[Rfam]
Nucleotides: 079
Stems, first nucleotide, its partner, number of pairs: 009071003013067002018062002023057003028053006035046001
Number, partner (000 for none) and nucleotide at each position: 001000u002000u003000u004000u005000a006000g007000c008000c009071c010070u011069g012000a013067u014066a015000g016000a017000a018062g019061c020000g021000g022000c023057a024056u025055c026000c027000u028053c029052u030051u031050g032049u033048g034000g035046u036000a037000g038000c039000g040000c041000u042000a043000g044000c045000g046035a047000a048033c049032a050031c051030a052029a053028g054000a055025g056024a057023u058000a059000c060000a061019g062018c063000g064000g065000a066014u067013a068000g069011c070010a071009g072000g073000a074000a075000a076000c077000a078000g079000c
Shown here is a 79-nucleotide RNA from Flavobacterium sp. FPG59, a member of the family "Flavo-1 RNA". The base pairs follow the family's consensus structure, which is taken from published work. It is annotated as a small RNA.